[Rfam]
RNA sequence: GCAGCGUUGUGUGCACAGUUCCCCAUCUGUGUCUGGUGGUAGGGUCUGUGUGUGUUUUGCACAUAGACUGUACUGCUCACACAAAACCUGUGGCCAAAGAUGAACCUGAGAUCAUAGUACUGGUCCAGUGAUGUCUGAAGGACAGUCUCCCACUGACCA
Dot-bracket structure: ............(((..............(((.((((((((..(((((..(((.....)))..)))))..))))).))).))).....))).............................(((((.((((.((((.....))))......)))))))))
RNA: Small nucleolar RNA SNORA23